The family of this 79-nucleotide sequence from Giardia duodenalis is "Small nucleolar RNA GlsR9". The literature on the family includes a 2012 paper in Nucleic Acids Res by Hudson et al., "Evolutionarily divergent spliceosomal snRNAs and a conserved non-coding RNA processing motif in Giardia lamblia". Gene Ontology terms of the family: nucleolus and RNA processing. The family's consensus secondary structure was predicted with WAR. It is annotated as a C/D-box small nucleolar RNA.
RNA sequence: UAGCAACCCGUGAUUUGCAACGCUUAGUCCGUGUUUCGGAGUGUCUUGCACGCUGAUGAGUGAAAGCACACAUGAGGUU
Numbered sequence: 001u002a003g004c005a006a007c008c009c010g011u012g013a014u015u016u017g018c019a020a021c022g023c024u025u026a027g028u029c030c031g032u033g034u035u036u037c038g039g040a041g042u043g044u045c046u047u048g049c050a051c052g053c054u055g056a057u058g059a060g061u062g063a064a065a066g067c068a069c070a071c072a073u074g075a076g077g078u079u
Base pairs, nucleotide, nucleotide: 005079006078007077008076